This 87-nucleotide RNA from Alkalihalophilus pseudofirmus belongs to the Rfam family "BsrC".
[Rfam]
RNA sequence: AUUCUUCCAAACAAUAAAAGCCCUGCCUCUCUUUCAUCCUUGCGGCUCCGAUGACCGCGCCAGCUGAUUGAAAUGCGCUUGAUAUUG
Numbered sequence: 001a002u003u004c005u006u007c008c009a010a011a012c013a014a015u016a017a018a019a020g021c022c023c024u025g026c027c028u029c030u031c032u033u034u035c036a037u038c039c040u041u042g043c044g045g046c047u048c049c050g051a052u053g054a055c056c057g058c059g060c061c062a063g064c065u066g067a068u069u070g071a072a073a074u075g076c077g078c079u080u081g082a083u084a085u086u087g
Stems, first nucleotide, its partner, number of pairs: 034067003039063002041059005047053001

Taxonomically the source falls in Alkalihalophilus pseudofirmus (Bacteria, Bacillota, Caryophanales, Bacillaceae). It is annotated as a small RNA. The family has 29 seed sequences and 572 matches in Rfam 15.1. Rfam's curators write: The 301 nucleotide sequence from Kouji Nakamura has been trimmed to a highly conserved ~85 nucleotide long core to form this family. The base pairs follow the family's consensus structure, which was predicted with CMfinder.